[Rfam]
RNA sequence: CGCCUUGUGCCUGAAAGGGCGACGGUGCUGAGCCGGAGCGAGAAGUCAGCAGAGGCCGUAGUAGCCGCUGGUAUGGGGGCAAAGGGC
Numbered sequence: 001c002g003c004c005u006u007g008u009g010c011c012u013g014a015a016a017g018g019g020c021g022a023c024g025g026u027g028c029u030g031a032g033c034c035g036g037a038g039c040g041a042g043a044a045g046u047c048a049g050c051a052g053a054g055g056c057c058g059u060a061g062u063a064g065c066c067g068c069u070g071g072u073a074u075g076g077g078g079g080c081a082a083a084g085g086g087c
Base pairs, nucleotide, nucleotide: 001030002029005024008021009020010019011018012017046053047052055087056086057085064080065079066078068076069075
The record is an 87-nucleotide RNA sequence from Burkholderia vietnamiensis, which matches "Group II catalytic intron D1-D4-1" in Rfam. For this family Rfam cites "Group II introns: structure and catalytic versatility of large natural ribozymes" (Lehmann and Schmidt, Crit Rev Biochem Mol Biol, 2003). Rfam's curators put it in the seed alignment. Group II introns are found in rRNA, tRNA and mRNA of organelles in fungi, plants and protists, and also in mRNA in bacteria.